Record summary:
L31-Firmicutes ribosomal protein leader: a 33-nucleotide RNA from Enterococcus caccae. The family's consensus secondary structure is taken from published work. A reference for the family is Eckert and Weinberg (2020), "Discovery of 20 novel ribosomal leader candidates in bacteria and archaea", BMC Microbiol. The sequence is in the family's curated seed alignment. Lineage of the source: Bacteria > Bacillota > Bacilli > Lactobacillales > Enterococcus caccae.
RNA sequence: CUCUGAUACAGCAAAUGGAUCAGGGCAAAGGAG
Numbered sequence: 001c002u003c004u005g006a007u008a009c010a011g012c013a014a015a016u017g018g019a020u021c022a023g024g025g026c027a028a029a030g031g032a033g
Stems, first nucleotide, its partner, number of pairs: 001025007
Dot-bracket structure: (((((((...........)))))))........
By type it is a cis-regulatory leader.